[Rfam]
RNA sequence: GAGUUUUUCCCAGCUCCGACGGGAUGGCACUCGUGACUAGUUCCGCCGCCUUGUAUCACACGAGCGUGUGUAUCCCCGUGCGACUCAAGGCGGCGGAACUAGCGACGAGCGCCCUUCCAUCGGAGCUGGGUAGAAUUCA
Numbered sequence: 001g002a003g004u005u006u007u008u009c010c011c012a013g014c015u016c017c018g019a020c021g022g023g024a025u026g027g028c029a030c031u032c033g034u035g036a037c038u039a040g041u042u043c044c045g046c047c048g049c050c051u052u053g054u055a056u057c058a059c060a061c062g063a064g065c066g067u068g069u070g071u072a073u074c075c076c077c078g079u080g081c082g083a084c085u086c087a088a089g090g091c092g093g094c095g096g097a098a099c100u101a102g103c104g105a106c107g108a109g110c111g112c113c114c115u116u117c118c119a120u121c122g123g124a125g126c127u128g129g130g131u132a133g134a135a136u137u138c139a
Stems, first nucleotide, its partner, number of pairs: 001138001003136005009130002012127008021118004026113003030109005037102004042097002045094009056083002059080004
A member of the RNA family "MIR3454 microRNA precursor family" from Ectocarpus siliculosus, 139 nucleotides long. Taxonomically the source falls in Ectocarpus (Eukaryota, Sar, Ochrophyta, Ectocarpales). Rfam links the family to the GO terms miRNA-mediated post-transcriptional gene silencing and RISC complex.